[Rfam]
Nucleotides: 064
Base pairs, nucleotide, nucleotide: 001055002053004051005050006049007048008047009046
Number, partner (000 for none) and nucleotide at each position: 001055u002053c003000a004051g005050c006049c007048a008047a009046u010000g011000a012000u013000a014000a015000c016000u017000g018000c019000a020000g021000a022000a023000g024000c025000c026000a027000u028000a029000g030000a031000a032000a033000a034000a035000g036000g037000g038000a039000u040000u041000a042000a043000g044000g045000a046009a047008u048007u049006g050005g051004u052000g053002g054000a055001a056000a057000u058000u059000a060000a061000u062000a063000c064000a